[Rfam]
RNA sequence: GUCACAACGGCUUCCUGACGUGGCAGAUUGAAUUAUUGGAGCA
Numbered sequence: 001g002u003c004a005c006a007a008c009g010g011c012u013u014c015c016u017g018a019c020g021u022g023g024c025a026g027a028u029u030g031a032a033u034u035a036u037u038g039g040a041g042c043a
Stems, first nucleotide, its partner, number of pairs: 001024005008017002010042003014039002
A member of the RNA family "SAM/SAH riboswitch aptamer" from Pseudomonadota, 43 nucleotides long. Lineage of the source: Bacteria > Pseudomonadati. The literature on the family includes a 2019 paper in Nucleic Acids Res by Weickhmann et al., "The structure of the SAM/SAH-binding riboswitch". The base pairs follow the family's consensus structure, which is taken from published work.